Description
This 86-nucleotide sequence from Medicago truncatula belongs to the Rfam family "MIR2617 microRNA precursor family".
RNA sequence: UUAUAGUGUGACAUGCCGUUUAACGUGGAACUCUGAUUUUAUAAUUAUAAUUAAAUUGAUUUUGGGAAACGGGGUGUUACACAAUA
Numbered sequence: 001u002u003a004u005a006g007u008g009u010g011a012c013a014u015g016c017c018g019u020u021u022a023a024c025g026u027g028g029a030a031c032u033c034u035g036a037u038u039u040u041a042u043a044a045u046u047a048u049a050a051u052u053a054a055a056u057u058g059a060u061u062u063u064g065g066g067a068a069a070c071g072g073g074g075u076g077u078u079a080c081a082c083a084a085u086a
Base pairs, nucleotide, nucleotide: 002086003085004084006082007081008080009079010078011077012076013075014074016072017071018070019069020068
A search with the family's covariance model found it, with a score of 49 bits. Taxonomically the source falls in Medicago (Eukaryota, Pentapetalae, Fabales, Papilionoideae). Its family is annotated with RISC complex and miRNA-mediated post-transcriptional gene silencing in the Gene Ontology. The base pairs follow the family's consensus structure, which was predicted with RNAalifold.